[Rfam]
RNA: sodF sRNA
RNA sequence: ACGUCCUGCUCGUGAUCGUCUUCUCACCCUUCACCUGCAGGCGGCACAAGGAAGGGCCUUGGGCCGGGACGACCCGGCCGGAGGCCCUUC
Numbered sequence: 001a002c003g004u005c006c007u008g009c010u011c012g013u014g015a016u017c018g019u020c021u022u023c024u025c026a027c028c029c030u031u032c033a034c035c036u037g038c039a040g041g042c043g044g045c046a047c048a049a050g051g052a053a054g055g056g057c058c059u060u061g062g063g064c065c066g067g068g069a070c071g072a073c074c075c076g077g078c079c080g081g082a083g084g085c086c087c088u089u090c
Base pairs, nucleotide, nucleotide: 002043003042005041006040007039008038009037012034013033014032015031018028051090052089053088054087055086056085057084058083059082060081062079063078064077065076066075